[Rfam]
RNA sequence: AUACCUUUCUCGGCCUUUUGGCUAAGAUCAAGUGUAGUAUAUGUUCUUAUCAGUUUAAUAUCUGAUACGUGAAUCAUUGAUUCACAUGAUAUUAAAUUUAUUUUUUUAGGGAGAGGGCUCAUCAAAAUAGCUUGCUAUUAGAGUCUUUGAGCGUUGCUUGUGUGUUGCACUAUAGCACAGGCCUAGUGCAACCCUC
Numbered sequence: 001a002u003a004c005c006u007u008u009c010u011c012g013g014c015c016u017u018u019u020g021g022c023u024a025a026g027a028u029c030a031a032g033u034g035u036a037g038u039a040u041a042u043g044u045u046c047u048u049a050u051c052a053g054u055u056u057a058a059u060a061u062c063u064g065a066u067a068c069g070u071g072a073a074u075c076a077u078u079g080a081u082u083c084a085c086a087u088g089a090u091a092u093u094a095a096a097u098u099u100a101u102u103u104u105u106u107u108a109g110g111g112a113g114a115g116g117g118c119u120c121a122u123c124a125a126a127a128u129a130g131c132u133u134g135c136u137a138u139u140a141g142a143g144u145c146u147u148u149g150a151g152c153g154u155u156g157c158u159u160g161u162g163u164g165u166u167g168c169a170c171u172a173u174a175g176c177a178c179a180g181g182c183c184u185a186g187u188g189c190a191a192c193c194c195u196c
Stems, first nucleotide, its partner, number of pairs: 008027003012023004048067006069085007113148008127138004151189006158180006